Source information
A member of the RNA family "Alphaproteobacteria transfer-messenger RNA" from Aerophototrophica crusticola, 353 nucleotides long. Rfam's curators write: Bacterial tmRNA, also known as 10Sa RNA or SsrA, is named for its dual tRNA and mRNA-like properties. Its role is to liberate the mRNA from a stalled ribosome. To accomplish this part of the tmRNA is used as a reading frame that ends in a translation stop signal. The organism belongs to Aerophototrophica, within Bacteria. It is annotated as a non-coding RNA gene.

RNA sequence: CCCCUUCCAUCCCGCCGGCAAAAGGCCUAUAUGAGUCCGUGCCGGGGCAACCCGGCUAUGGGGAUAAACGCUGUACGGAAUAGGCGUAGUGGACCCGGGGGCGGUACCCGGCGCCUCCACCAUCACCCCUCCCCGCCAGGGGAUGGGUCCAUGGGGGCGAAACAGGAUCGACACGCGUAGUAAAGGUACGGUCUUCUCCCGGCAUGGUACCGCCGUUAUCGGGCCAUACUCACAGAUGCCAACGAUAACGUUGCGUCUGAUCUGCGCGUGGCCGCCUAAUUACCCCCUUCAGGGUAGUUAGCGGUUAACGCAGAACACGGCCCGGGGGAGCCGGGUAACAGAAUCCCCCCACU
Numbered sequence: 001c002c003c004c005u006u007c008c009a010u011c012c013c014g015c016c017g018g019c020a021a022a023a024g025g026c027c028u029a030u031a032u033g034a035g036u037c038c039g040u041g042c043c044g045g046g047g048c049a050a051c052c053c054g055g056c057u058a059u060g061g062g063g064a065u066a067a068a069c070g071c072u073g074u075a076c077g078g079a080a081u082a083g084g085c086g087u088a089g090u091g092g093a094c095c096c097g098g099g100g101g102c103g104g105u106a107c108c109c110g111g112c113g114c115c116u117c118c119a120c121c122a123u124c125a126c127c128c129c130u131c132c133c134c135g136c137c138a139g140g141g142g143a144u145g146g147g148u149c150c151a152u153g154g155g156g157g158c159g160a161a162a163c164a165g166g167a168u169c170g171a172c173a174c175g176c177g178u179a180g181u182a183a184a185g186g187u188a189c190g191g192u193c194u195u196c197u198c199c200c201g202g203c204a205u206g207g208u209a210c211c212g213c214c215g216u217u218a219u220c221g222g223g224c225c226a227u228a229c230u231c232a233c234a235g236a237u238g239c240c241a242a243c244g245a246u247a248a249c250g251u252u253g254c255g256u257c258u259g260a261u262c263u264g265c266g267c268g269u270g271g272c273c274g275c276c277u278a279a280u281u282a283c284c285c286c287c288u289u290c291a292g293g294g295u296a297g298u299u300a301g302c303g304g305u306u307a308a309c310g311c312a313g314a315a316c317a318c319g320g321c322c323c324g325g326g327g328g329a330g331c332c333g334g335g336u337a338a339c340a341g342a343a344u345c346c347c348c349c350c351a352c353u
Stems, first nucleotide, its partner, number of pairs: 041056005060199005070192007085177003089174003095111005112159007200215004205226003210222002318333004324350005